[Rfam]
The family of this 67-nucleotide sequence from Ignelater luminosus is "mir-12 microRNA precursor family". Lineage of the source: Eukaryota > Metazoa > Altocrustacea > Neuropteroidea > Ignelater. It scores 61 bits against the family's covariance model. For this family Rfam cites "Functional shifts in insect microRNA evolution" (Marco et al., Genome Biol Evol, 2010). Rfam links the family to the GO terms RISC complex and miRNA-mediated post-transcriptional gene silencing.

RNA sequence: AGUACGUGAGUAUUACAUCAGGUACUGGUUAUUUUUAAAAUCGGUCCCUGUGUAACACUUACGUACU
Numbered sequence: 001a002g003u004a005c006g007u008g009a010g011u012a013u014u015a016c017a018u019c020a021g022g023u024a025c026u027g028g029u030u031a032u033u034u035u036u037a038a039a040a041u042c043g044g045u046c047c048c049u050g051u052g053u054a055a056c057a058c059u060u061a062c063g064u065a066c067u
Stems, first nucleotide, its partner, number of pairs: 001067006009059003015053004021048002024045006